[Rfam]
RNA sequence: AGUCAAGAGUUUUUGGCAUCGUUUUGGUGAGCGGCUUUCUUUUGCCUGAAGAAAGGUGAAGGGAAAG
Numbered sequence: 001a002g003u004c005a006a007g008a009g010u011u012u013u014u015g016g017c018a019u020c021g022u023u024u025u026g027g028u029g030a031g032c033g034g035c036u037u038u039c040u041u042u043u044g045c046c047u048g049a050a051g052a053a054a055g056g057u058g059a060a061g062g063g064a065a066a067g
Stems, first nucleotide, its partner, number of pairs: 010063005017058004022054004029047001031045004